Small nucleolar RNA snoR2/U65: a 143-nucleotide RNA sequence from Cucurbita maxima. The match comes from Rfam's covariance-model search (113 bits).

RNA sequence: GGUUCGAUGCCACGUCGUCGAGAGCUCAAUGGCGGUGACCAACGAUGCUAUGAUUGAACCAAAAGUAAAAUUUUCACAUCUUGAUAGGAAUCUGUUCAAUCUUUUUCCAUAGAUUUACAGAGCCGUUUUGUGUGAUUACAAUU
Dot-bracket structure: .((((((((...((((((.(...(((....)))......).))))))...).)))))))..............(((((........((...(((...(.(...........).)...)))..))......)))))........
Gene Ontology terms of the family: nucleolus and RNA processing. A reference for the family is Shaw et al. (1998), "Localization and processing from a polycistronic precursor of novel snoRNAs in maize", J Cell Sci.